RNA sequence: UUCUAGCCCUGACAGUAGCGGCAUCCUUUUUCUUUUUUCUUUAAAAAGGAAAAGAUAUAGCGGAUGGCAGGAUUAGCU
Numbered sequence: 001u002u003c004u005a006g007c008c009c010u011g012a013c014a015g016u017a018g019c020g021g022c023a024u025c026c027u028u029u030u031u032c033u034u035u036u037u038u039c040u041u042u043a044a045a046a047a048g049g050a051a052a053a054g055a056u057a058u059a060g061c062g063g064a065u066g067g068c069a070g071g072a073u074u075a076g077c078u
Stems, first nucleotide, its partner, number of pairs: 009070003013066002018061002023056003028052010
The record is a 78-nucleotide RNA from Flavobacterium psychrophilum, which matches "Flavo-1 RNA" in Rfam. Rfam 15.1 lists 7,497 matches to the family in 411 species. It is annotated as a small RNA.